[Rfam]
Shown here is a 173-nucleotide sequence from Caballeronia concitans, a member of the family "Burkholderia RNA 14". Co-purified with Hfq, expression confirmed by Northern blot. Putative functional homologue of PA-SraF. Overlaps coding sequence. Gene Ontology term of the family: protein binding. Pairs were carried over by alignment from the consensus structure, which was predicted with RNAfold. The literature on the family includes a 2013 paper in Genomics by Ramos et al., "Experimental identification of small non-coding regulatory RNAs in the opportunistic human pathogen Burkholderia cenocepacia J2315". Rfam 15.1 lists 98 matches to the family in 91 species. The match comes from Rfam's covariance-model search (135 bits).
RNA sequence: GUCGGCGUCGUGACGGUCCAGCCGACCGCCGUGCCGGUCACGACCGAACUGCCGGGCCGCACGAGCGCGUACCUCGUCGCGCAGGUGCGCGCGCGCGUCGACGGCGUCGUGCUGCGCCGUGAAUUCACCGAAGGCAGCAUCGUCAAGGCGGGGCAGCGGCUCUACAAGAUCGA
Numbered sequence: 001g002u003c004g005g006c007g008u009c010g011u012g013a014c015g016g017u018c019c020a021g022c023c024g025a026c027c028g029c030c031g032u033g034c035c036g037g038u039c040a041c042g043a044c045c046g047a048a049c050u051g052c053c054g055g056g057c058c059g060c061a062c063g064a065g066c067g068c069g070u071a072c073c074u075c076g077u078c079g080c081g082c083a084g085g086u087g088c089g090c091g092c093g094c095g096c097g098u099c100g101a102c103g104g105c106g107u108c109g110u111g112c113u114g115c116g117c118c119g120u121g122a123a124u125u126c127a128c129c130g131a132a133g134g135c136a137g138c139a140u141c142g143u144c145a146a147g148g149c150g151g152g153g154c155a156g157c158g159g160c161u162c163u164a165c166a167a168g169a170u171c172g173a
Stems, first nucleotide, its partner, number of pairs: 003054005008047003011043001015039002018037002021034002023031002056149003059143002067135002072133001074131002078093005094121002097118001099116002102114005157172002160168002